[Rfam]
RNA sequence: UAGUAAAGAUAGCUUAACAUUCUCUUGGUUUUGACACUGUGCUAGAGCAAUGUCUGUUCUUUUCUUCUGCACUGAAAGGACCAUUUAUCCUUUUAAAUGUAUUCAGAAAAUCAGCACGUUA
Numbered sequence: 001u002a003g004u005a006a007a008g009a010u011a012g013c014u015u016a017a018c019a020u021u022c023u024c025u026u027g028g029u030u031u032u033g034a035c036a037c038u039g040u041g042c043u044a045g046a047g048c049a050a051u052g053u054c055u056g057u058u059c060u061u062u063u064c065u066u067c068u069g070c071a072c073u074g075a076a077a078g079g080a081c082c083a084u085u086u087a088u089c090c091u092u093u094u095a096a097a098u099g100u101a102u103u104c105a106g107a108a109a110a111u112c113a114g115c116a117c118g119u120u121a
Base pairs, nucleotide, nucleotide: 001033002032004028006026007025008024012020014019044060045059046058047057048056049055066107067106068105069104070099071098073096074094075093076092077091078090079089080088